A member of the RNA family "SAM riboswitch aptamer (S box leader)" from Ammoniphilus sp. CFH 90114, 133 nucleotides long. A search with the family's covariance model found it, with a score of 78 bits. Lineage of the source: Bacteria > Bacillati > Bacillota > Paenibacillaceae > Ammoniphilus. The SAM riboswitch is found upstream of a number of genes which code for proteins involved in methionine or cysteine biosynthesis in Gram-positive bacteria. The SAM riboswitch acts at the level of transcription termination control. The predicted structure consists of a complex stem-loop region followed by a single stem loop terminator region.
RNA sequence: AUCUUAUCGAGAGAUGGCUGAGGGACUGGCCCGAUGACGCCCGGCAACCGAUUUUUAUUUUUCUCUAAUUGAGCAGAAUAAAAACACGGUGCUACAUCCUGCAGAAUGAAAGAUAUAUUCUGAGAGAUAAGUU
Numbered sequence: 001a002u003c004u005u006a007u008c009g010a011g012a013g014a015u016g017g018c019u020g021a022g023g024g025a026c027u028g029g030c031c032c033g034a035u036g037a038c039g040c041c042c043g044g045c046a047a048c049c050g051a052u053u054u055u056u057a058u059u060u061u062u063c064u065c066u067a068a069u070u071g072a073g074c075a076g077a078a079u080a081a082a083a084a085c086a087c088g089g090u091g092c093u094a095c096a097u098c099c100u101g102c103a104g105a106a107u108g109a110a111a112g113a114u115a116u117a118u119u120c121u122g123a124g125a126g127a128u129a130a131g132u133u
Stems, first nucleotide, its partner, number of pairs: 001133001003131006013042001016041003022032003026101001028099002043093004048089002050085001052083004097125001102122006